Shown here is a 65-nucleotide RNA from Delphinapterus leucas, a member of the family "Small nucleolar RNA SNORD58". Its family is annotated with nucleolus and RNA processing in the Gene Ontology. From the family's description: snoRNA U58 is found in introns 1, 3 and 6 of the ribosomal protein RPL17 gene in humans. Pairs were carried over by alignment from the consensus structure, which was predicted with PFOLD. Rfam 15.1 lists 2,484 matches to the family in 680 species. The literature on the family includes a 2002 paper in Mol Cell Biol by Galardi et al., "Purified box C/D snoRNPs are able to reproduce site-specific 2'-O-methylation of target RNA in vitro".

RNA sequence: CUGCGGUGAUGCAUUUCUUAGGACACCUUUGGAUUUACCGUGAAAAUAAAUCGAUUUUGAGUAGC
Numbered sequence: 001c002u003g004c005g006g007u008g009a010u011g012c013a014u015u016u017c018u019u020a021g022g023a024c025a026c027c028u029u030u031g032g033a034u035u036u037a038c039c040g041u042g043a044a045a046a047u048a049a050a051u052c053g054a055u056u057u058u059g060a061g062u063a064g065c
Stems, first nucleotide, its partner, number of pairs: 001064004